Rfam assigns this 138-nucleotide RNA from Paenibacillus flagellatus to the family "c-di-AMP riboswitch aptamer (ydaO/yuaA leader)".

[Rfam]
RNA sequence: AAUCGAAACAUGCCGAAUUCCCGCGCAAUCGGGAAACGGGGAAACCAUUCCGGGUGAAUUGAUCUCGCAGUAGAGUGAUCAUAGGGAACCUUCAACCGAACCCUUAAGCUAACCUCGUAGGCACUGGAAGGAGCCCAU
Numbered sequence: 001a002a003u004c005g006a007a008a009c010a011u012g013c014c015g016a017a018u019u020c021c022c023g024c025g026c027a028a029u030c031g032g033g034a035a036a037c038g039g040g041g042a043a044a045c046c047a048u049u050c051c052g053g054g055u056g057a058a059u060u061g062a063u064c065u066c067g068c069a070g071u072a073g074a075g076u077g078a079u080c081a082u083a084g085g086g087a088a089c090c091u092u093c094a095a096c097c098g099a100a101c102c103c104u105u106a107a108g109c110u111a112a113c114c115u116c117g118u119a120g121g122c123a124c125u126g127g128a129a130g131g132a133g134c135c136c137a138u
Stems, first nucleotide, its partner, number of pairs: 011123004018035006036118006052103003060081004084097002
Record summary:
About the family: This family represents a conserved RNA structure found upstream of the ydaO and yuaA genes in Bacillus subtilis and related genes in other bacteria. A search with the family's covariance model found it, with a score of 66 bits.